Nucleotides: 061
Stems, first nucleotide, its partner, number of pairs: 033058004038053006
Number, partner (000 for none) and nucleotide at each position: 001000a002000a003000g004000a005000g006000u007000a008000a009000a010000a011000g012000c013000u014000u015000u016000u017000u018000u019000u020000a021000a022000u023000u024000a025000g026000u027000c028000c029000a030000g031000u032000a033058g034057u035056u036055u037000c038053u039052u040051a041050c042049c043048u044000u045000u046000u047000a048043a049042g050041g051040u052039a053038a054000a055036a056035a057034a058033c059000a060000a061000a